A member of the RNA family "TUC338" from Bucco capensis, 178 nucleotides long. A reference for the family is Braconi et al. (2011), "Expression and functional role of a transcribed noncoding RNA with an ultraconserved element in hepatocellular carcinoma", Proc Natl Acad Sci U S A. Rfam classes the family as a cis-regulatory element. The family has 34 seed sequences and 75,615 matches in Rfam 15.1. A search with the family's covariance model found it, with a score of 138 bits.

[Rfam]
RNA sequence: UUGACAAGUCCUGGAGACUGAAAUCCUCUGUUUAUCCACAGAGCAGAUACAGCGUGGGCAGCAGUGGCAGCUUCCCCCACACUGCCUCCUCCCUGUGCCUGAACGCUGAGUUGGAGGAAGCACCUCUAAAGGUGAGAGGAGUUAUUCAGUCUCCAUGCCCAUGCAAUCCUCUGGGGGA
Numbered sequence: 001u002u003g004a005c006a007a008g009u010c011c012u013g014g015a016g017a018c019u020g021a022a023a024u025c026c027u028c029u030g031u032u033u034a035u036c037c038a039c040a041g042a043g044c045a046g047a048u049a050c051a052g053c054g055u056g057g058g059c060a061g062c063a064g065u066g067g068c069a070g071c072u073u074c075c076c077c078c079a080c081a082c083u084g085c086c087u088c089c090u091c092c093c094u095g096u097g098c099c100u101g102a103a104c105g106c107u108g109a110g111u112u113g114g115a116g117g118a119a120g121c122a123c124c125u126c127u128a129a130a131g132g133u134g135a136g137a138g139g140a141g142u143u144a145u146u147c148a149g150u151c152u153c154c155a156u157g158c159c160c161a162u163g164c165a166a167u168c169c170u171c172u173g174g175g176g177g178a
Base pairs, nucleotide, nucleotide: 002165003164005163008159012155013154014153015152016151017150018149019148020147021146022145025141027139028138029137031136032135033134034133035132036131039108040107041106043104049100052098053097054096055095056094057093061085062084063083064082111129112128113127114126115125116124117123